[Rfam]
A member of the RNA family "pemK RNA" from Enterococcus faecium, 62 nucleotides long. Pairs were carried over by alignment from the consensus structure, which is taken from published work.
RNA sequence: AUAAUGAUACUUCCGUAACCAAAUCGGCUCGCCAUCACUGGGGAGAGGUGAAAAUCCUAUGU
Numbered sequence: 001a002u003a004a005u006g007a008u009a010c011u012u013c014c015g016u017a018a019c020c021a022a023a024u025c026g027g028c029u030c031g032c033c034a035u036c037a038c039u040g041g042g043g044a045g046a047g048g049u050g051a052a053a054a055u056c057c058u059a060u061g062u
Stems, first nucleotide, its partner, number of pairs: 012059001013027003028045003032041003046058003